[Rfam]
RNA sequence: UAGCCUGAGGUGAUGAGUGUGGUUCAUGUCUCUUCUCUGAGAUUACACUGGAGAUAUUCCAAAGACUCUGAUCAGGCAG
Numbered sequence: 001u002a003g004c005c006u007g008a009g010g011u012g013a014u015g016a017g018u019g020u021g022g023u024u025c026a027u028g029u030c031u032c033u034u035c036u037c038u039g040a041g042a043u044u045a046c047a048c049u050g051g052a053g054a055u056a057u058u059c060c061a062a063a064g065a066c067u068c069u070g071a072u073c074a075g076g077c078a079g
Stems, first nucleotide, its partner, number of pairs: 001079001003077003